[Rfam]
RNA sequence: UCUGAGACUAGGGUCACAUCCUAACAGUUCACAGCUCUUCUCUAGUGUGCUGGAGUCCUCAGAAUCUGCUGGUCUUGAUUCACUGAUGGGGGCAACCAGUGUCCCCUUAGUGUCCGGGCAGAAACAUAC
Numbered sequence: 001u002c003u004g005a006g007a008c009u010a011g012g013g014u015c016a017c018a019u020c021c022u023a024a025c026a027g028u029u030c031a032c033a034g035c036u037c038u039u040c041u042c043u044a045g046u047g048u049g050c051u052g053g054a055g056u057c058c059u060c061a062g063a064a065u066c067u068g069c070u071g072g073u074c075u076u077g078a079u080u081c082a083c084u085g086a087u088g089g090g091g092g093c094a095a096c097c098a099g100u101g102u103c104c105c106c107u108u109a110g111u112g113u114c115c116g117g118g119c120a121g122a123a124a125c126a127u128a129c
Stems, first nucleotide, its partner, number of pairs: 002062005007056003012051002015049005023041001069121003073118003077114001081112006088106006